[Rfam]
RNA sequence: UUUUCGGAGAGUUUGAUCCUGGCUCAGGACAAACGCUGGCGGCGUGUAUUAGGCAUGCAAGUCGCACGGAUCACUUCGGUGGUCAGUGGCGGACGGGUGAGUAACACGUGGGUAACCUGCCUCGCAGUGGGGAAUAACUAUCCGAAAGGAUAGCUAAUACCGCAUACCACCCCCGGUGAGAAUCCGGGUGGUAAAAGCAGUAAUGCGCUGUGAGAGGGGCCCGCGGCCGAUUAGCUUGUUGGUGGGGUAAUGGCUUACCAAGGCAACGAUCGGUAGCUGGUCUGAGAGGAUGGUCAGCCACACGGGGACUGAGAUACGGCCCCGACUCCUACGGGAGGCAGCAGCUAAGAAUCUUGCGCAAUGGGCGAAAGCCUGACGCAGCAACGCCGCGUGGGGGACGAAGGCCCUCGGGUCGUAAACCCCUUUUGCGAGGGAAGAAGUUCUGACGGUACCUCGCGAAUAAGCCACGGCUAACUACGUGCCAGCAGCCGCGGUAAUACGUAGGUGGCGAGCGUUGUCCGGAUUUAUUG
Numbered sequence: 001u002u003u004u005c006g007g008a009g010a011g012u013u014u015g016a017u018c019c020u021g022g023c024u025c026a027g028g029a030c031a032a033a034c035g036c037u038g039g040c041g042g043c044g045u046g047u048a049u050u051a052g053g054c055a056u057g058c059a060a061g062u063c064g065c066a067c068g069g070a071u072c073a074c075u076u077c078g079g080u081g082g083u084c085a086g087u088g089g090c091g092g093a094c095g096g097g098u099g100a101g102u103a104a105c106a107c108g109u110g111g112g113u114a115a116c117c118u119g120c121c122u123c124g125c126a127g128u129g130g131g132g133a134a135u136a137a138c139u140a141u142c143c144g145a146a147a148g149g150a151u152a153g154c155u156a157a158u159a160c161c162g163c164a165u166a167c168c169a170c171c172c173c174c175g176g177u178g179a180g181a182a183u184c185c186g187g188g189u190g191g192u193a194a195a196a197g198c199a200g201u202a203a204u205g206c207g208c209u210g211u212g213a214g215a216g217g218g219g220c221c222c223g224c225g226g227c228c229g230a231u232u233a234g235c236u237u238g239u240u241g242g243u244g245g246g247g248u249a250a251u252g253g254c255u256u257a258c259c260a261a262g263g264c265a266a267c268g269a270u271c272g273g274u275a276g277c278u279g280g281u282c283u284g285a286g287a288g289g290a291u292g293g294u295c296a297g298c299c300a301c302a303c304g305g306g307g308a309c310u311g312a313g314a315u316a317c318g319g320c321c322c323c324g325a326c327u328c329c330u331a332c333g334g335g336a337g338g339c340a341g342c343a344g345c346u347a348a349g350a351a352u353c354u355u356g357c358g359c360a361a362u363g364g365g366c367g368a369a370a371g372c373c374u375g376a377c378g379c380a381g382c383a384a385c386g387c388c389g390c391g392u393g394g395g396g397g398a399c400g401a402a403g404g405c406c407c408u409c410g411g412g413u414c415g416u417a418a419a420c421c422c423c424u425u426u427u428g429c430g431a432g433g434g435a436a437g438a439a440g441u442u443c444u445g446a447c448g449g450u451a452c453c454u455c456g457c458g459a460a461u462a463a464g465c466c467a468c469g470g471c472u473a474a475c476u477a478c479g480u481g482c483c484a485g486c487a488g489c490c491g492c493g494g495u496a497a498u499a500c501g502u503a504g505g506u507g508g509c510g511a512g513c514g515u516u517g518u519c520c521g522g523a524u525u526u527a528u529u530g
Stems, first nucleotide, its partner, number of pairs: 009025005027520004032516006039390006045383002047348001052346003056343003061090003066087002069084006097301003107225007116218002121214007129163001131161002138153006169192003173188002176185001178183001197206003227273003234264003239261008276298004280291004303324005326337004354380001356379003362375005393423004403414004428457006437447001464509005475504005485492002

Rfam assigns this 530-nucleotide part of an RNA from bacterium SCGC AG-212-C10 to the family "Bacterial small subunit ribosomal RNA". Clan: SSU clan. Its family is annotated with structural constituent of ribosome and ribosome in the Gene Ontology.